[Rfam]
RNA sequence: UGGAUGGUAUCUUAAAGAGCCAUACCGCUAACAGAUACGGGUUGCCAGAAGGGAAAAUACAAUUUAUAUCCGCUUAGAUCUGCAACGGACUGAGACGGAAGG
Dot-bracket structure: ((((((((.((.....))))))).)))..........................................((((((((.(((.....)))))))).)))....
Shown here is a 102-nucleotide RNA sequence from Acetonema longum, a member of the family "pan motif". The base pairs follow the family's consensus structure, which is taken from published work.